[Rfam]
RNA: FMN riboswitch aptamer (RFN element)
RNA sequence: GAUGACCUUCAGGGCAGGGUGAAAUUCCUGACCGGCGGUAAUGACGAAAGCAGCGUCUGAGCCCGCGACUCGCCCAUGGCUGAAGCCAUGAGCGACUGACUUGGUGAAAAUCCAAGGCCGACGGUUACAGUCCGGAUGGGAGAAGGUGCAU
Numbered sequence: 001g002a003u004g005a006c007c008u009u010c011a012g013g014g015c016a017g018g019g020u021g022a023a024a025u026u027c028c029u030g031a032c033c034g035g036c037g038g039u040a041a042u043g044a045c046g047a048a049a050g051c052a053g054c055g056u057c058u059g060a061g062c063c064c065g066c067g068a069c070u071c072g073c074c075c076a077u078g079g080c081u082g083a084a085g086c087c088a089u090g091a092g093c094g095a096c097u098g099a100c101u102u103g104g105u106g107a108a109a110a111u112c113c114a115a116g117g118c119c120g121a122c123g124g125u126u127a128c129a130g131u132c133c134g135g136a137u138g139g140g141a142g143a144a145g146g147u148g149c150a151u
Stems, first nucleotide, its partner, number of pairs: 005147006017029003031131002033120002035066004061118002070095004100116005122134003